[Rfam]
RNA: Small nucleolar RNA U3
RNA sequence: AAGACUAUACUUUCAGGGAUCAUUUCUAUAGUUCGUUACUAGAGAAGUUUCUCUGAACGUGUAGAGCACCGAAAGCCACGAGGAAGAGACAUAGCGUUUUCUUCUGAGCGUGAAGCCGGCUUUAUGGUGUUGCUUAGCUGCAACUGCCGUCAGCCAUUGAUGAUCGUUCUUCUCUCCACUUGGGGGAGUAAGAGGGAGAGAACGCGGUCUGAGUGGU
Numbered sequence: 001a002a003g004a005c006u007a008u009a010c011u012u013u014c015a016g017g018g019a020u021c022a023u024u025u026c027u028a029u030a031g032u033u034c035g036u037u038a039c040u041a042g043a044g045a046a047g048u049u050u051c052u053c054u055g056a057a058c059g060u061g062u063a064g065a066g067c068a069c070c071g072a073a074a075g076c077c078a079c080g081a082g083g084a085a086g087a088g089a090c091a092u093a094g095c096g097u098u099u100u101c102u103u104c105u106g107a108g109c110g111u112g113a114a115g116c117c118g119g120c121u122u123u124a125u126g127g128u129g130u131u132g133c134u135u136a137g138c139u140g141c142a143a144c145u146g147c148c149g150u151c152a153g154c155c156a157u158u159g160a161u162g163a164u165c166g167u168u169c170u171u172c173u174c175u176c177c178a179c180u181u182g183g184g185g186g187a188g189u190a191a192g193a194g195g196g197a198g199a200g201a202a203c204g205c206g207g208u209c210u211g212a213g214u215g216g217u
Stems, first nucleotide, its partner, number of pairs: 002040002006035001009032003015027004049065002054061001075217005094205012108167003118155004125149004129144005170191002172188006